[Rfam]
RNA sequence: AACUCCUCGCGUUCACCGUACUGCCUCUUAUGUUUUCAUAUUAGUCAUAAGGCACGCGGUGAAUGCCAAGAGUG
Numbered sequence: 001a002a003c004u005c006c007u008c009g010c011g012u013u014c015a016c017c018g019u020a021c022u023g024c025c026u027c028u029u030a031u032g033u034u035u036u037c038a039u040a041u042u043a044g045u046c047a048u049a050a051g052g053c054a055c056g057c058g059g060u061g062a063a064u065g066c067c068a069a070g071a072g073u074g
Stems, first nucleotide, its partner, number of pairs: 003072003009066008018057002024052003029049004